[Rfam]
RNA sequence: ACUCGAUAAUAGUAAAACUGCUGAAAGGCAGCGACACAAAACUAAAGGGUCUAAGGUCUCAAUCGCAGACUAUGAUAGCCAGUUGCCGUA
Numbered sequence: 001a002c003u004c005g006a007u008a009a010u011a012g013u014a015a016a017a018c019u020g021c022u023g024a025a026a027g028g029c030a031g032c033g034a035c036a037c038a039a040a041a042c043u044a045a046a047g048g049g050u051c052u053a054a055g056g057u058c059u060c061a062a063u064c065g066c067a068g069a070c071u072a073u074g075a076u077a078g079c080c081a082g083u084u085g086c087c088g089u090a
Base pairs, nucleotide, nucleotide: 012037013036018031019030020029021028022027040084041083042082043081047080048079049076050075051074056070057069058068059067